Rfam assigns this 228-nucleotide RNA sequence from Trifolium subterraneum to the family "MIR2630 microRNA precursor family". Its family is annotated with RISC complex and miRNA-mediated post-transcriptional gene silencing in the Gene Ontology. Lineage of the source: Eukaryota > Streptophyta > Gunneridae > Papilionoideae > Trifolium. A search with the family's covariance model found it, with a score of 147 bits.
RNA sequence: CCUUGCAAAUAUAUAUUUUUUUUUUAGUCCUCGAUGCUUUGUUUUAGUCCUUGCAAAAUAUGCUCAUGUUCAAAUUAGUCCUUGUAAUAUUUAUUUUAGUCCUUAUUUUAAAGGACUAAAAUCAAAUAUUUUGCAUAUUACAGAGACCAAUUCCAAUAUUAAUCAAUUUUGUAAGGACUAAAACAAAACAACAAGAACCAAAAGCAAAAUAUUAUACAUUUACAAGGA
Numbered sequence: 001c002c003u004u005g006c007a008a009a010u011a012u013a014u015a016u017u018u019u020u021u022u023u024u025u026a027g028u029c030c031u032c033g034a035u036g037c038u039u040u041g042u043u044u045u046a047g048u049c050c051u052u053g054c055a056a057a058a059u060a061u062g063c064u065c066a067u068g069u070u071c072a073a074a075u076u077a078g079u080c081c082u083u084g085u086a087a088u089a090u091u092u093a094u095u096u097u098a099g100u101c102c103u104u105a106u107u108u109u110a111a112a113g114g115a116c117u118a119a120a121a122u123c124a125a126a127u128a129u130u131u132u133g134c135a136u137a138u139u140a141c142a143g144a145g146a147c148c149a150a151u152u153c154c155a156a157u158a159u160u161a162a163u164c165a166a167u168u169u170u171g172u173a174a175g176g177a178c179u180a181a182a183a184c185a186a187a188a189c190a191a192c193a194a195g196a197a198c199c200a201a202a203a204g205c206a207a208a209a210u211a212u213u214a215u216a217c218a219u220u221u222a223c224a225a226g227g228a
Stems, first nucleotide, its partner, number of pairs: 007221004012216002015212002018209003022203004027198002030195002035190002038187009048177002051174009064161001066159005075150002078147003085140006105122005